[Rfam]
U2 spliceosomal RNA: a 191-nucleotide RNA sequence from Triticum aestivum. From the family's description: U2 is a small nuclear RNA (snRNA) component of the spliceosome (involved in pre-mRNA splicing). Rfam classes the family as a spliceosomal small nuclear RNA.
RNA sequence: AUACUUUCUCGACCUUUUUGCUAAGAUGAAGUGUAACAUCCGUUCUUAUCAGUUUAAUAUCUGAUAUAUGGACCAUCAUGUCCAUAUGAUAUUAAUUUUUUUGUGGGAGAGGAUCUAUAUAUGAGCCUGGUACAUGGAUUCUCACGUAUCGGUCUAAACGUUGCACUAUUACUAGAGGCAGCGCAUCUCAA
Numbered sequence: 001a002u003a004c005u006u007u008c009u010c011g012a013c014c015u016u017u018u019u020g021c022u023a024a025g026a027u028g029a030a031g032u033g034u035a036a037c038a039u040c041c042g043u044u045c046u047u048a049u050c051a052g053u054u055u056a057a058u059a060u061c062u063g064a065u066a067u068a069u070g071g072a073c074c075a076u077c078a079u080g081u082c083c084a085u086a087u088g089a090u091a092u093u094a095a096u097u098u099u100u101u102u103g104u105g106g107g108a109g110a111g112g113a114u115c116u117a118u119a120u121a122u123g124a125g126c127c128u129g130g131u132a133c134a135u136g137g138a139u140u141c142u143c144a145c146g147u148a149u150c151g152g153u154c155u156a157a158a159c160g161u162u163g164c165a166c167u168a169u170u171a172c173u174a175g176a177g178g179c180a181g182c183g184c185a186u187c188u189c190a191a
Base pairs, nucleotide, nucleotide: 007026008025009024011022013020047066048065049064050063051062052061068085069084070083071082072081073080109143110142111141112140113139114138115137116136122134123133125131146184147183149181151179153176154175155174156173